The family of this 35-nucleotide RNA sequence from Aquimarina algicola is "DUF805b RNA". The match comes from Rfam's covariance-model search (39 bits). Taxonomically the source falls in Aquimarina (Bacteria, Pseudomonadati, Bacteroidota, Flavobacteriaceae). By type it is a cis-regulatory element.
RNA sequence: UAGGAGUAACCUGAAAAUCCUAUAAAGAGUAGGGG
Numbered sequence: 001u002a003g004g005a006g007u008a009a010c011c012u013g014a015a016a017a018u019c020c021u022a023u024a025a026a027g028a029g030u031a032g033g034g035g
Stems, first nucleotide, its partner, number of pairs: 002021004010034003
Dot-bracket structure: .((((....[[[.....))))..........]]].